[Rfam]
This 274-nucleotide sequence from Microdochium bolleyi belongs to the Rfam family "Fungal signal recognition particle RNA". A search with the family's covariance model found it, with a score of 106 bits. Its Rfam clan is "SRP clan". The organism belongs to Microdochium, within Eukaryota. Rfam 15.1 lists 748 matches to the family in 741 species. By type it is a non-coding RNA gene. A reference for the family is Batey et al. (2000), "Crystal structure of the ribonucleoprotein core of the signal recognition particle", Science.

RNA sequence: CGACUGUAAUGGUCAAUUUGGUUGAAGGCGCUUGUUACUCCCAGCUAGCCGCACCACUUCCGUUAGAUCCCUCGACGCCGCGCCCACCGAGGAUGCUGCGGUGGCCGCCUAUCCGCUUGGGUAACCAGCGUUGACUAGAUGGUCCUCAGACAUGGAGAGCACACUUCAGGGUGGUCUUACACUGCAGAGUAUCUCCCCCGUCGCAUAGCUCGGUGGAUCACGUCGGCUCGAGGAUGUGGGAUGGUUGGUUGGGAUGGAGAUUGUCAACUCCGUU
Numbered sequence: 001c002g003a004c005u006g007u008a009a010u011g012g013u014c015a016a017u018u019u020g021g022u023u024g025a026a027g028g029c030g031c032u033u034g035u036u037a038c039u040c041c042c043a044g045c046u047a048g049c050c051g052c053a054c055c056a057c058u059u060c061c062g063u064u065a066g067a068u069c070c071c072u073c074g075a076c077g078c079c080g081c082g083c084c085c086a087c088c089g090a091g092g093a094u095g096c097u098g099c100g101g102u103g104g105c106c107g108c109c110u111a112u113c114c115g116c117u118u119g120g121g122u123a124a125c126c127a128g129c130g131u132u133g134a135c136u137a138g139a140u141g142g143u144c145c146u147c148a149g150a151c152a153u154g155g156a157g158a159g160c161a162c163a164c165u166u167c168a169g170g171g172u173g174g175u176c177u178u179a180c181a182c183u184g185c186a187g188a189g190u191a192u193c194u195c196c197c198c199c200g201u202c203g204c205a206u207a208g209c210u211c212g213g214u215g216g217a218u219c220a221c222g223u224c225g226g227c228u229c230g231a232g233g234a235u236g237u238g239g240g241a242u243g244g245u246u247g248g249u250u251g252g253g254a255u256g257g258a259g260a261u262u263g264u265c266a267a268c269u270c271c272g273u274u
Stems, first nucleotide, its partner, number of pairs: 002014003020269006030262001032260001035259002038256001039254013054239002072231003077227003080223003084216008093206004098201004104143004109138003114130004119126002145149001154196005163190004171182003